[Rfam]
RNA: Manganese Mn2+ riboswitch aptamer (yybP-ykoY)
Organism: Buttiauxella agrestis
RNA sequence: GCGCCCGUCGUUGGGGAGUAGCCGAUUUUCGCGAUUGCGAAAAUGUACAUGUCAACAUACUCGUUACUGGUUUAAAUAGAUUUUUUAAUCAGAAAUAUAACGUGGCAUGUACGACUCAGAUGCUGAGUAGGCGAGACCAUAGGCACGUAGCCAUCGUUUUAGUUGGGGAUGGAUUGCGUGUAUAUGGAUAUUCCCAACUGAGGCGUUU
Numbered sequence: 001g002c003g004c005c006c007g008u009c010g011u012u013g014g015g016g017a018g019u020a021g022c023c024g025a026u027u028u029u030c031g032c033g034a035u036u037g038c039g040a041a042a043a044u045g046u047a048c049a050u051g052u053c054a055a056c057a058u059a060c061u062c063g064u065u066a067c068u069g070g071u072u073u074a075a076a077u078a079g080a081u082u083u084u085u086u087a088a089u090c091a092g093a094a095a096u097a098u099a100a101c102g103u104g105g106c107a108u109g110u111a112c113g114a115c116u117c118a119g120a121u122g123c124u125g126a127g128u129a130g131g132c133g134a135g136a137c138c139a140u141a142g143g144c145a146c147g148u149a150g151c152c153a154u155c156g157u158u159u160u161a162g163u164u165g166g167g168g169a170u171g172g173a174u175u176g177c178g179u180g181u182a183u184a185u186g187g188a189u190a191u192u193c194c195c196a197a198c199u200g201a202g203g204c205g206u207u208u
Base pairs, nucleotide, nucleotide: 026043027042028041045112046111047110048109049108050107051106052105053104054103062102063101064100065099066098113207114206115205117203